[Rfam]
RNA sequence: AAUCCCAUUGAUGAACUAGCUGAAUAAUUUAAAAGUAGUGGCCUGAUGUCCAUUGAUGAAAAUCUUAAAGUUUGCGAUU
Number, nucleotide and partner (000 for none) at each position: 001a079002a078003u077004c076005c000006c074007a000008u000009u000010g000011a000012u000013g000014a000015a000016c000017u000018a000019g000020c000021u000022g000023a000024a000025u000026a000027a000028u000029u000030u000031a000032a000033a000034a000035g000036u000037a000038g000039u000040g000041g000042c000043c000044u000045g000046a000047u000048g000049u000050c000051c000052a000053u000054u000055g000056a000057u000058g000059a000060a000061a000062a000063u000064c000065u000066u000067a000068a000069a000070g000071u000072u000073u000074g006075c000076g004077a003078u002079u001
The record is a 79-nucleotide RNA sequence from Nicotiana attenuata, which matches "Small nucleolar RNA R21" in Rfam.
The literature on the family includes a 2001 paper in J Mol Biol by Barneche et al., "Identification of 66 box C/D snoRNAs in Arabidopsis thaliana: extensive gene duplications generated multiple isoforms predicting new ribosomal RNA 2'-O-methylation sites".
Taxonomically the source falls in Nicotiana (Eukaryota, Viridiplantae, Streptophytina, asterids).
Its family is annotated with nucleolus and RNA processing in the Gene Ontology.